[Rfam]
RNA sequence: UAGUCCUGGCCUAUGCCAUUUCUGCUCCCCCGUGCUCAGUCCUAACAGGGUAGUCUGGCAGGGCACACAGCAAUCUCCCUCUCAGUUUAGGAGGGCUGUCCAAAGAAUAGGGCUGGCAAGAGAGUACAAU
Numbered sequence: 001u002a003g004u005c006c007u008g009g010c011c012u013a014u015g016c017c018a019u020u021u022c023u024g025c026u027c028c029c030c031c032g033u034g035c036u037c038a039g040u041c042c043u044a045a046c047a048g049g050g051u052a053g054u055c056u057g058g059c060a061g062g063g064c065a066c067a068c069a070g071c072a073a074u075c076u077c078c079c080u081c082u083c084a085g086u087u088u089a090g091g092a093g094g095g096c097u098g099u100c101c102a103a104a105g106a107a108u109a110g111g112g113c114u115g116g117c118a119a120g121a122g123a124g125u126a127c128a129a130u
Base pairs, nucleotide, nucleotide: 003064004063005062006061007060008059010058011057024054025053026052028050029049030048032046033045079124080123081122082121083120095117096116097115098113099112100111101110103108
Dot-bracket structure: ..((((((.((............(((.(((.((...........)).))).)))..))))))))..............(((((...........(((((((.(....).)))).)))..)))))......
Annotation: A member of the RNA family "Small Cajal body specific RNA 11" from Aotus nancymaae, 130 nucleotides long. It is annotated as a small Cajal body RNA. A reference for the family is Darzacq et al. (2002), "Cajal body-specific small nuclear RNAs: a novel class of 2'-O-methylation and pseudouridylation guide RNAs", EMBO J. Its family is annotated with Cajal body, nucleolus and RNA processing in the Gene Ontology. From the family's description: scaRNAs are a specific class of small nuclear RNAs which localise to the Cajal bodies and guide the modification of RNA polymerase II transcribed spliceosomal RNAs U1, U2, U4, U5 and U12. ACA57 belongs to the H/ACA box class of guide RNAs as it has the predicted hairpin-hinge-hairpin-tail structure, conserved H/ACA-box motifs and is found associated with GAR1.